[Rfam]
RNA sequence: UAUAAAUAAAAGAUUCGCACUCGUAUAUCAGCGGGAAUAUGGCCCGCAAGUCUCUACCGAACCACCGUAAAUGGUUCGACUACGGGUGACGCUUGUCGUGUG
Number, nucleotide and partner (000 for none) at each position: 001u000002a000003u000004a000005a000006a000007u000008a000009a000010a000011a000012g000013a000014u000015u000016c000017g000018c088019a087020c086021u085022c084023g083024u082025a081026u000027a000028u000029c000030a000031g047032c046033g045034g044035g043036a000037a000038u000039a000040u000041g000042g000043c035044c034045c033046g032047c031048a000049a000050g000051u000052c000053u000054c000055u000056a000057c000058c078059g077060a076061a075062c074063c073064a072065c000066c000067g000068u000069a000070a000071a000072u064073g063074g062075u061076u060077c059078g058079a000080c000081u025082a024083c023084g022085g021086g020087u019088g018089a000090c000091g000092c000093u000094u000095g000096u000097c000098g000099u000100g000101u000102g000
Rfam assigns this 102-nucleotide RNA from Exiguobacterium chiriqhucha to the family "Purine riboswitch aptamer". A search with the family's covariance model found it, with a score of 88 bits. The family's consensus secondary structure is taken from published work.